Rfam assigns this 100-nucleotide RNA from Limosilactobacillus equigenerosi to the family "azaaromatic riboswitch aptamer (yjdF RNA)".
The base pairs follow the family's consensus structure, which is taken from published work.
Nucleotides: 100
Base pairs, nucleotide, nucleotide: 004092005091006090007089008088009087010086011085022041023040024039025038026037027036042057043056044055045054046053047052067077068076069075
Number, partner (000 for none) and nucleotide at each position: 001000a002000c003000a004092u005091a006090g007089g008088a009087a010086a011085g012000u013000a014000a015000a016000a017000a018000c019000a020000c021000g022041g023040u024039u025038c026037g027036g028000u029000u030000g031000g032000u033000a034000g035000u036027c037026c038025g039024a040023a041022c042057a043056u044055c045054a046053g047052u048000a049000c050000c051000c052047a053046c054045u055044g056043a057042u058000c059000a060000g061000u062000a063000u064000c065000c066000u067077u068076c069075c070000c071000u072000c073000c074000a075069g076068g077067a078000u079000g080000u081000c082000c083000c084000a085011c086010u087009u088008u089007c090006u091005u092004a093000g094000u095000c096000u097000a098000a099000u100000u